[Rfam]
Small nucleolar RNA J33: an 81-nucleotide RNA from Gossypium raimondii. A search with the family's covariance model found it, with a score of 76 bits.
RNA sequence: CGGUCAGAGGCAUGAUGUACUAUUAUCGAGCUCUACAGCUGCUAGCUUUUCUCGAUUCUUCAUCUGAGACGGAUAUUACCG
Numbered sequence: 001c002g003g004u005c006a007g008a009g010g011c012a013u014g015a016u017g018u019a020c021u022a023u024u025a026u027c028g029a030g031c032u033c034u035a036c037a038g039c040u041g042c043u044a045g046c047u048u049u050u051c052u053c054g055a056u057u058c059u060u061c062a063u064c065u066g067a068g069a070c071g072g073a074u075a076u077u078a079c080c081g
Stems, first nucleotide, its partner, number of pairs: 001081004006076001
Annotation: Rfam links the family to the GO terms nucleolus and RNA processing. The pairing is the family consensus, mapped onto this sequence. Lineage of the source: Eukaryota > Viridiplantae > malvids > Malvoideae > Gossypium.